[Rfam]
This 85-nucleotide RNA sequence from Lotus japonicus belongs to the Rfam family "Small nucleolar RNA snoR14".
NCBI's taxonomy places the organism under Eukaryota, Streptophyta, Spermatophyta, Hologalegina, Lotus.
The sequence is in the family's curated seed alignment.
Rfam 15.1 lists 668 matches to the family in 221 species.
Its family is annotated with nucleolus and RNA processing in the Gene Ontology.

RNA sequence: GCGAGGUGACGAUAUCACUUCAAUGGUAUGUCAAUUCACUGAUACUAUCGUGAUGUAUUCAUGAAUCCCGACAGGUUCUGAUCGC
Numbered sequence: 001g002c003g004a005g006g007u008g009a010c011g012a013u014a015u016c017a018c019u020u021c022a023a024u025g026g027u028a029u030g031u032c033a034a035u036u037c038a039c040u041g042a043u044a045c046u047a048u049c050g051u052g053a054u055g056u057a058u059u060c061a062u063g064a065a066u067c068c069c070g071a072c073a074g075g076u077u078c079u080g081a082u083c084g085c
Base pairs, nucleotide, nucleotide: 001085002084003083004082